[Rfam]
RNA: Y RNA
RNA sequence: GGCUGGUCCGAUGGUAGUGGGUUAUCAGAACUUAUUAACAUUAGUGCCACUGAAGCUGGUCUACAAUCCCCCGCUGCUAAAUCUGACUGGCUUUAC
Numbered sequence: 001g002g003c004u005g006g007u008c009c010g011a012u013g014g015u016a017g018u019g020g021g022u023u024a025u026c027a028g029a030a031c032u033u034a035u036u037a038a039c040a041u042u043a044g045u046g047c048c049a050c051u052g053a054a055g056c057u058g059g060u061c062u063a064c065a066a067u068c069c070c071c072c073g074c075u076g077c078u079a080a081a082u083c084u085g086a087c088u089g090g091c092u093u094u095a096c
Stems, first nucleotide, its partner, number of pairs: 001092008010084001015079001016075006027060001030057001
Dot-bracket structure: ((((((((.(....(((((((.....(..(..........................)..).........))))))...)....)))))))))....